Rfam assigns this 127-nucleotide RNA from Dickeya dadantii to the family "Phenylalanine leader peptide". A reference for the family is Zurawski et al. (1978), "Nucleotide sequence of the leader region of the phenylalanine operon of Escherichia coli", Proc Natl Acad Sci U S A. The family has 71 seed sequences and 379 matches in Rfam 15.1. Its family is annotated with cellular amino acid metabolic process in the Gene Ontology. The source organism's lineage runs through Bacteria, Pseudomonadati, Pseudomonadota, Dickeya and Dickeya dadantii.
[Rfam]
RNA sequence: CAUGACGCCACAACCGUUCUUCUUCGUAUUCUUUUUUACUCUCCCCGAUGCGGGGGGCGAUUUGUCGUGUGAGUAAGAAUACGAAGACGAACAAAAAAGCCUCCUGAAAUCAGGAGGCUUUUUUAUU
Numbered sequence: 001c002a003u004g005a006c007g008c009c010a011c012a013a014c015c016g017u018u019c020u021u022c023u024u025c026g027u028a029u030u031c032u033u034u035u036u037u038a039c040u041c042u043c044c045c046c047g048a049u050g051c052g053g054g055g056g057g058c059g060a061u062u063u064g065u066c067g068u069g070u071g072a073g074u075a076a077g078a079a080u081a082c083g084a085a086g087a088c089g090a091a092c093a094a095a096a097a098a099g100c101c102u103c104c105u106g107a108a109a110u111c112a113g114g115a116g117g118c119u120u121u122u123u124u125a126u127u
Stems, first nucleotide, its partner, number of pairs: 016092004021087013036072004042055004056066004096121010
Dot-bracket structure: ...............((((.(((((((((((((..((((..((((......))))((((...))))..))))..))))))))))))).))))...((((((((((......))))))))))......